[Rfam]
RNA sequence: CGUCAGACGCGCGGGAGUCCGGCGAGACCGGGCUGAGAGGAGGGCUGGCGGCCCUCGACCGCAAAGACCUGAUCCGGAUCAUGCCGGCGAAGGGAGCGGGACCUCAUGGGUG
Numbered sequence: 001c002g003u004c005a006g007a008c009g010c011g012c013g014g015g016a017g018u019c020c021g022g023c024g025a026g027a028c029c030g031g032g033c034u035g036a037g038a039g040g041a042g043g044g045c046u047g048g049c050g051g052c053c054c055u056c057g058a059c060c061g062c063a064a065a066g067a068c069c070u071g072a073u074c075c076g077g078a079u080c081a082u083g084c085c086g087g088c089g090a091a092g093g094g095a096g097c098g099g100g101a102c103c104u105c106a107u108g109g110g111u112g
Stems, first nucleotide, its partner, number of pairs: 008098003011062004017033005040056007068093003074087004

A member of the RNA family "TPP riboswitch aptamer (THI element)" from Sphaerisporangium album, 112 nucleotides long.
Rfam links the family to the GO term thiamine pyrophosphate binding.
Taxonomically the source falls in Sphaerisporangium (Bacteria, Bacillati, Actinomycetota, Streptosporangiaceae).